[Rfam]
RNA: Bacterial small signal recognition particle RNA
Organism: Mitsuokella sp. oral taxon 131
RNA sequence: GUUCGGGUCUUGCGCAAUGGGAUCUCAUGAACCACGUCAGGUCCGGAAGGAAGCAGCGUUAAGUGAAUCGUCUCAUGUGCCGUGAGGGUGCCUGGGGACU
Numbered sequence: 001g002u003u004c005g006g007g008u009c010u011u012g013c014g015c016a017a018u019g020g021g022a023u024c025u026c027a028u029g030a031a032c033c034a035c036g037u038c039a040g041g042u043c044c045g046g047a048a049g050g051a052a053g054c055a056g057c058g059u060u061a062a063g064u065g066a067a068u069c070g071u072c073u074c075a076u077g078u079g080c081c082g083u084g085a086g087g088g089u090g091c092c093u094g095g096g097g098a099c100u
Stems, first nucleotide, its partner, number of pairs: 004094005009086006015077001017076006025066004034059004042051003